Overview:
The family of this 46-nucleotide sequence from Solanum lycopersicum is "Plastid-rpl16 group II-D1 intron". Lineage of the source: Eukaryota > eudicotyledons > Solanoideae > Solanum > Solanum subgen. Lycopersicon. Rfam links the family to the GO term Group II intron splicing. The family has 538 seed sequences and 1,446 matches in Rfam 15.1. From the family's description: Plastid-rpl16 is a non-coding RNA (ncRNA) recognised in plastids. The base pairs follow the family's consensus structure, which was predicted with LocARNA.

RNA sequence: AUCAGCUUCGAGCCAAUAAAGACUGAGAAGAUUGACUUGCGAUCAA
Numbered sequence: 001a002u003c004a005g006c007u008u009c010g011a012g013c014c015a016a017u018a019a020a021g022a023c024u025g026a027g028a029a030g031a032u033u034g035a036c037u038u039g040c041g042a043u044c045a046a
Stems, first nucleotide, its partner, number of pairs: 007041001010038003014034004